[Rfam]
Nucleotides: 105
Base pairs, nucleotide, nucleotide: 009096010095011094012093013092014091015090
Number, partner (000 for none) and nucleotide at each position: 001000u002000c003000c004000c005000u006000c007000c008000c009096u010095g011094g012093a013092a014091g015090g016000g017000g018000u019000g020000a021000u022000g023000u024000g025000u026000c027000a028000g029000c030000a031000c032000a033000g034000c035000c036000c037000a038000g039000a040000u041000a042000a043000g044000g045000a046000c047000u048000c049000u050000g051000a052000c053000u054000c055000c056000g057000u058000g059000u060000g061000c062000g063000u064000g065000u066000g067000a068000u069000g070000a071000a072000a073000c074000u075000u076000c077000u078000g079000g080000a081000g082000u083000g084000c085000u086000c087000u088000g089000a090015c091014c092013u093012u094011c095010c096009a097000u098000g099000g100000c101000a102000a103000g104000a105000g